The family of this 355-nucleotide part of an RNA from Stieleria marina is "Bacterial small subunit ribosomal RNA".
A reference for the family is Yusupov et al. (2001), "Crystal structure of the ribosome at 5.5 A resolution", Science.

[Rfam]
RNA sequence: GGCUUAAAGCGUGCGUAGGCGGCUUGGUAGGUGAGAUGUGAAAGCCCACGGCUCAACCGUGGAAUUGCGUUUCAAACCCCCAAGCUCGAGGAAGAUAGGGGUGAUGGGAACUUAUGGUGGAGCGGUGAAAUGCGUUGAUAUCAUAGGGAACACCGGUGGCGAAGGCGCAUCACUGGAUCUUUUCUGACGCUGAGGCACGAAAGCUAGGGUAGCGAACGGGAUUAGAUACCCCGGUAGUCCUAGCUGUAAACGAUGAACACUGGGUUGAGGGGACUUCCACAUCCUCUCGGCCGUAGCGAAAGCGUUAAGUGUUCCGCCUGGGGAGUAUGGUCGCAAGGCUGAAACUCAAAGGAAU
Numbered sequence: 001g002g003c004u005u006a007a008a009g010c011g012u013g014c015g016u017a018g019g020c021g022g023c024u025u026g027g028u029a030g031g032u033g034a035g036a037u038g039u040g041a042a043a044g045c046c047c048a049c050g051g052c053u054c055a056a057c058c059g060u061g062g063a064a065u066u067g068c069g070u071u072u073c074a075a076a077c078c079c080c081c082a083a084g085c086u087c088g089a090g091g092a093a094g095a096u097a098g099g100g101g102u103g104a105u106g107g108g109a110a111c112u113u114a115u116g117g118u119g120g121a122g123c124g125g126u127g128a129a130a131u132g133c134g135u136u137g138a139u140a141u142c143a144u145a146g147g148g149a150a151c152a153c154c155g156g157u158g159g160c161g162a163a164g165g166c167g168c169a170u171c172a173c174u175g176g177a178u179c180u181u182u183u184c185u186g187a188c189g190c191u192g193a194g195g196c197a198c199g200a201a202a203g204c205u206a207g208g209g210u211a212g213c214g215a216a217c218g219g220g221a222u223u224a225g226a227u228a229c230c231c232c233g234g235u236a237g238u239c240c241u242a243g244c245u246g247u248a249a250a251c252g253a254u255g256a257a258c259a260c261u262g263g264g265u266u267g268a269g270g271g272g273a274c275u276u277c278c279a280c281a282u283c284c285u286c287u288c289g290g291c292c293g294u295a296g297c298g299a300a301a302g303c304g305u306u307a308a309g310u311g312u313u314c315c316g317c318c319u320g321g322g323g324a325g326u327a328u329g330g331u332c333g334c335a336a337g338g339c340u341g342a343a344a345c346u347c348a349a350a351g352g353a354a355u
Stems, first nucleotide, its partner, number of pairs: 001318003009315001011198004016192001018191003022085006030078002032074009046062006089185003092181005100174007107151001111147008122133003159166002203244006212238002217233004255314006263292011296303002320347003329340004

Its family is annotated with structural constituent of ribosome and ribosome in the Gene Ontology.
A search with the family's covariance model found it, with a score of 1500 bits.